Alphaproteobacteria transfer-messenger RNA: a 361-nucleotide RNA sequence from Methylocella tundrae. About the family: Bacterial tmRNA, also known as 10Sa RNA or SsrA, is named for its dual tRNA and mRNA-like properties. Its role is to liberate the mRNA from a stalled ribosome. To accomplish this part of the tmRNA is used as a reading frame that ends in a translation stop signal. The base pairs follow the family's consensus structure, which is taken from published work. It scores 301 bits against the family's covariance model. By type it is a non-coding RNA gene. Taxonomically the source falls in Methylocella (Bacteria, Pseudomonadati, Hyphomicrobiales, Beijerinckiaceae).
RNA sequence: GGCGUUUGUAAAUCCGCGUUUGGCGCUUAUAUUGGUUUUUGCAGCGUUCGCGCGGCUAUGGCGAUAAACGGCGUCGAAAUAAGCUCUUCGGACCCGGGGGCGGUACCCGGCGCCUCCACCAAAAUCCGUAUUGAAUCAAGCGGAUUUUGGCGGGGGCGAAAUAGGUUCGACGGGGAGUGUAAAGGACUGUCUUUCGCUCGGCAUGGUACCGCCGUUAUCGGGCUAAACCUUAUAGUUGCCAAUGACAACUAUGCUCCGGUGGCCGUUGCUGCGUAAUGCGGCAAUAGUACCGAAAUUAAAGCCCUUGGGGGUAGCACUCUAAGGCGGGGUUCGGAGGCACCUGGCAACAGAAGCCUCCACU
Numbered sequence: 001g002g003c004g005u006u007u008g009u010a011a012a013u014c015c016g017c018g019u020u021u022g023g024c025g026c027u028u029a030u031a032u033u034g035g036u037u038u039u040u041g042c043a044g045c046g047u048u049c050g051c052g053c054g055g056c057u058a059u060g061g062c063g064a065u066a067a068a069c070g071g072c073g074u075c076g077a078a079a080u081a082a083g084c085u086c087u088u089c090g091g092a093c094c095c096g097g098g099g100g101c102g103g104u105a106c107c108c109g110g111c112g113c114c115u116c117c118a119c120c121a122a123a124a125u126c127c128g129u130a131u132u133g134a135a136u137c138a139a140g141c142g143g144a145u146u147u148u149g150g151c152g153g154g155g156g157c158g159a160a161a162u163a164g165g166u167u168c169g170a171c172g173g174g175g176a177g178u179g180u181a182a183a184g185g186a187c188u189g190u191c192u193u194u195c196g197c198u199c200g201g202c203a204u205g206g207u208a209c210c211g212c213c214g215u216u217a218u219c220g221g222g223c224u225a226a227a228c229c230u231u232a233u234a235g236u237u238g239c240c241a242a243u244g245a246c247a248a249c250u251a252u253g254c255u256c257c258g259g260u261g262g263c264c265g266u267u268g269c270u271g272c273g274u275a276a277u278g279c280g281g282c283a284a285u286a287g288u289a290c291c292g293a294a295a296u297u298a299a300a301g302c303c304c305u306u307g308g309g310g311g312u313a314g315c316a317c318u319c320u321a322a323g324g325c326g327g328g329g330u331u332c333g334g335a336g337g338c339a340c341c342u343g344g345c346a347a348c349a350g351a352a353g354c355c356u357c358c359a360c361u
Stems, first nucleotide, its partner, number of pairs: 041056002044053002060198005070191003073187003084177003088173003094110005111158007199214004204225003209221002327342004333358006